Rfam assigns this 333-nucleotide RNA sequence from Noviherbaspirillum pedocola to the family "Bacterial RNase P class A".
The family's RNA type in Rfam is ribozyme.
About the family: Ribonuclease P (RNase P) is a ubiquitous endoribonuclease, found in archaea, bacteria and eukarya as well as chloroplasts and mitochondria.
Taxonomically the source falls in Noviherbaspirillum (Bacteria, Betaproteobacteria, Burkholderiales, Oxalobacteraceae).
RNA sequence: GAAGCGGGCCAGACAGUCGCUGGCUUGCGGGGUUUCCCCGCGGGCGGGAGGAAGGUCCGGACUCCACAGAGCAGGGUGACGGCUAACGGCCGUCCGCCGAAAGUCGCAAGAUAUAAGGCGCGGAACAGGGCCACAGAGACGAGCGUAUUUAGUUACGGUGAAACGCGGUAACCUCCACCCGGAGCAAUUCCAAAUAGGCACGCGAUGAUGCUGCUCGCGGAGCGUGCGGGUAGGAAGCUUGAGCCGUGGAGCAAUUCACGGCCUAGAGGAAUGACUGUCACGCCGGUCUUCGGACAGGCGCUACAGAAUCCGGCCUAUCGGCCCGCUUCAAUG
Numbered sequence: 001g002a003a004g005c006g007g008g009c010c011a012g013a014c015a016g017u018c019g020c021u022g023g024c025u026u027g028c029g030g031g032g033u034u035u036c037c038c039c040g041c042g043g044g045c046g047g048g049a050g051g052a053a054g055g056u057c058c059g060g061a062c063u064c065c066a067c068a069g070a071g072c073a074g075g076g077u078g079a080c081g082g083c084u085a086a087c088g089g090c091c092g093u094c095c096g097c098c099g100a101a102a103g104u105c106g107c108a109a110g111a112u113a114u115a116a117g118g119c120g121c122g123g124a125a126c127a128g129g130g131c132c133a134c135a136g137a138g139a140c141g142a143g144c145g146u147a148u149u150u151a152g153u154u155a156c157g158g159u160g161a162a163a164c165g166c167g168g169u170a171a172c173c174u175c176c177a178c179c180c181g182g183a184g185c186a187a188u189u190c191c192a193a194a195u196a197g198g199c200a201c202g203c204g205a206u207g208a209u210g211c212u213g214c215u216c217g218c219g220g221a222g223c224g225u226g227c228g229g230g231u232a233g234g235a236a237g238c239u240u241g242a243g244c245c246g247u248g249g250a251g252c253a254a255u256u257c258a259c260g261g262c263c264u265a266g267a268g269g270a271a272u273g274a275c276u277g278u279c280a281c282g283c284c285g286g287u288c289u290u291c292g293g294a295c296a297g298g299c300g301c302u303a304c305a306g307a308a309u310c311c312g313g314c315c316u317a318u319c320g321g322c323c324c325g326c327u328u329c330a331a332u333g
Stems, first nucleotide, its partner, number of pairs: 001329010011318001012279007020048002023045008053316003057313005062184004069216004074180005079093005094122001095120004123175002128173002130169003144157004188236004198227006209219003243262008